The record is a 52-nucleotide RNA from Microcoleus sp. FACHB-1515, which matches "Nitrogen stress-induced RNA 1" in Rfam. For this family Rfam cites "Heterocyst-specific transcription of NsiR1, a non-coding RNA encoded in a tandem array of direct repeats in cyanobacteria" (Ionescu et al., J Mol Biol, 2010). The base pairs follow the family's consensus structure.
RNA sequence: UAGUAGAUGCACCCUGAUUAGCACCUCUGGUUCACCGCCAGAGGUCUUUUUU
Numbered sequence: 001u002a003g004u005a006g007a008u009g010c011a012c013c014c015u016g017a018u019u020a021g022c023a024c025c026u027c028u029g030g031u032u033c034a035c036c037g038c039c040a041g042a043g044g045u046c047u048u049u050u051u052u
Stems, first nucleotide, its partner, number of pairs: 003012002024044008